[Rfam]
RNA: Small nucleolar RNA SNORD81
RNA sequence: GGGAGUGAAUGAUGAACUUACUCUUGAACUCUCUCACUGAGCAGUUGAUGACAGUAAGAAUUCUGACCUUACC
Numbered sequence: 001g002g003g004a005g006u007g008a009a010u011g012a013u014g015a016a017c018u019u020a021c022u023c024u025u026g027a028a029c030u031c032u033c034u035c036a037c038u039g040a041g042c043a044g045u046u047g048a049u050g051a052c053a054g055u056a057a058g059a060a061u062u063c064u065g066a067c068c069u070u071a072c073c
Stems, first nucleotide, its partner, number of pairs: 001073002004070002007067001
Dot-bracket structure: ((.((.(...........................................................).)).))